A member of the RNA family "mir-548 microRNA precursor family", 84 nucleotides long.
Rfam's curators put it in the seed alignment.
On this family, see Witten et al., BMC Biol 2010: "Ultra-high throughput sequencing-based small RNA discovery and discrete statistical biomarker analysis in a collection of cervical tumours and matched controls".
RNA sequence: UAUUAGGUUGGUCCAAAAGUAAUUACAGUUUUUGUCUUUGAAAGUAAUGUCAAAAACUGUGAUUACUUUUGCACCAACCUAAUA
Numbered sequence: 001u002a003u004u005a006g007g008u009u010g011g012u013c014c015a016a017a018a019g020u021a022a023u024u025a026c027a028g029u030u031u032u033u034g035u036c037u038u039u040g041a042a043a044g045u046a047a048u049g050u051c052a053a054a055a056a057c058u059g060u061g062a063u064u065a066c067u068u069u070u071g072c073a074c075c076a077a078c079c080u081a082a083u084a
Base pairs, nucleotide, nucleotide: 001084002083003082004081005080006079007078008077009076010075011074012073014071015070016069017068018067019066020065021064022063023062024061025060026059027058028057029056030055031054032053033052034051036049038047039046040045